[Rfam]
RNA sequence: CAUAUACUUUAGGGGUGUCUGUAGUAACAGGCUGAGAUUUUACCCUUGGAACCUGAUCUAGUUCAUACUAGCGUAGGGAAAAGUAGGACCACUUCU
Numbered sequence: 001c002a003u004a005u006a007c008u009u010u011a012g013g014g015g016u017g018u019c020u021g022u023a024g025u026a027a028c029a030g031g032c033u034g035a036g037a038u039u040u041u042a043c044c045c046u047u048g049g050a051a052c053c054u055g056a057u058c059u060a061g062u063u064c065a066u067a068c069u070a071g072c073g074u075a076g077g078g079a080a081a082a083g084u085a086g087g088a089c090c091a092c093u094u095c096u
Stems, first nucleotide, its partner, number of pairs: 006084005011046004017032005052077004058071004